mir-10 microRNA precursor family: a 70-nucleotide sequence from Apolygus lucorum.
A search with the family's covariance model found it, with a score of 52 bits.
RNA sequence: UACCUCUAACCCGUAGGUCCGAACUUGUGUGGUACUAGUUCACAAGAUCGACUCUAAGGGUACGAGGUAC
Numbered sequence: 001u002a003c004c005u006c007u008a009a010c011c012c013g014u015a016g017g018u019c020c021g022a023a024c025u026u027g028u029g030u031g032g033u034a035c036u037a038g039u040u041c042a043c044a045a046g047a048u049c050g051a052c053u054c055u056a057a058g059g060g061u062a063c064g065a066g067g068u069a070c
Base pairs, nucleotide, nucleotide: 002068003067004066005065006064010060011059012058015055016054017053020050021049022048024046025045026044027043028042029041

The family has 36 seed sequences and 3,853 matches in Rfam 15.1. Its family is annotated with miRNA-mediated post-transcriptional gene silencing and RISC complex in the Gene Ontology.